This 112-nucleotide RNA from Cohaesibacter marisflavi belongs to the Rfam family "SAM-I/IV (S-adenosyl methionine) riboswitch aptamer". The family is grouped with related families in Rfam's "SAM clan". The source organism's lineage runs through Bacteria, Pseudomonadati, Hyphomicrobiales, Cohaesibacteraceae and Cohaesibacter.

RNA sequence: GGCCAUCAUCACGAGAAGGGCUGACGCCCUCGCCAACCUGCCGACCGCGGCAAGGUGGCACCUGUACGGGGAUGUGGCGGCAUCUUUGCAAACCGCGAAGAUGGGCGCAACU
Numbered sequence: 001g002g003c004c005a006u007c008a009u010c011a012c013g014a015g016a017a018g019g020g021c022u023g024a025c026g027c028c029c030u031c032g033c034c035a036a037c038c039u040g041c042c043g044a045c046c047g048c049g050g051c052a053a054g055g056u057g058g059c060a061c062c063u064g065u066a067c068g069g070g071g072a073u074g075u076g077g078c079g080g081c082a083u084c085u086u087u088g089c090a091a092a093c094c095g096c097g098a099a100g101a102u103g104g105g106c107g108c109a110a111c112u
Stems, first nucleotide, its partner, number of pairs: 007074004015031001017030005032059003037055003040051003045107001048104001077096004